[Rfam]
RNA sequence: CAUCGGUCCCCCCGCAUUGAUUACCCGUUAACCUGGUCAGGCCCGGAAGGGAGCAGCCAUAGCGGGAACAUCGAGUGCCGGGGUGUGGCUGGUGGGGC
Numbered sequence: 001c002a003u004c005g006g007u008c009c010c011c012c013c014g015c016a017u018u019g020a021u022u023a024c025c026c027g028u029u030a031a032c033c034u035g036g037u038c039a040g041g042c043c044c045g046g047a048a049g050g051g052a053g054c055a056g057c058c059a060u061a062g063c064g065g066g067a068a069c070a071u072c073g074a075g076u077g078c079c080g081g082g083g084u085g086u087g088g089c090u091g092g093u094g095g096g097g098c
Base pairs, nucleotide, nucleotide: 004091005090006089007088008087010083011082012081013080014079015075017074018073019072020071021070024066025065026064027063028062029061034059035058036057037056042051043050044049
Dot-bracket structure: ...(((((.((((((.(((((..((((((....((((....(((....)))....)))).))))))...))))))...)))))...))))).......
The family of this 98-nucleotide sequence from Pseudomonas putida is "Bacterial small signal recognition particle RNA". Gene Ontology terms of the family: signal recognition particle, plasma membrane targeting and SRP-dependent cotranslational protein targeting to membrane, signal sequence recognition. The signal recognition particle (SRP) is a universally conserved ribonucleoprotein involved in the co-translational targeting of proteins to membranes.